[Rfam]
RNA sequence: GCAUGGAGAAUUCUGUUUUACUCUUGAAAUAGUAAAUGCAGUCAGACACCGUGCCAAAUUAUUGUUUUCACACACUGACUUAACUACAGGAUGAGUGCUAAUUUUGUGCCUCAUUCUUACGUCAGAGUGAAUACAGAA
Numbered sequence: 001g002c003a004u005g006g007a008g009a010a011u012u013c014u015g016u017u018u019u020a021c022u023c024u025u026g027a028a029a030u031a032g033u034a035a036a037u038g039c040a041g042u043c044a045g046a047c048a049c050c051g052u053g054c055c056a057a058a059u060u061a062u063u064g065u066u067u068u069c070a071c072a073c074a075c076u077g078a079c080u081u082a083a084c085u086a087c088a089g090g091a092u093g094a095g096u097g098c099u100a101a102u103u104u105u106g107u108g109c110c111u112c113a114u115u116c117u118u119a120c121g122u123c124a125g126a127g128u129g130a131a132u133a134c135a136g137a138a
Stems, first nucleotide, its partner, number of pairs: 001054006013041004018036001067131003073127001075125004084121001088117008
Rfam assigns this 138-nucleotide RNA from Cyclopterus lumpus to the family "Small nucleolar RNA SNORA15". The source organism's lineage runs through Eukaryota, Osteoglossocephalai, Cottales, Cyclopteridae and Cyclopterus. About the family: ACA15 is a member of the H/ACA class of snoRNA that guide the sites of modification of uridines to pseudouridines. A reference for the family is Huttenhofer et al. (2001), "RNomics: an experimental approach that identifies 201 candidates for novel, small, non-messenger RNAs in mouse", EMBO J. Rfam links the family to the GO terms nucleolus and RNA processing. The family's consensus secondary structure was predicted with RNAfold. Rfam classes the family as an H/ACA-box small nucleolar RNA.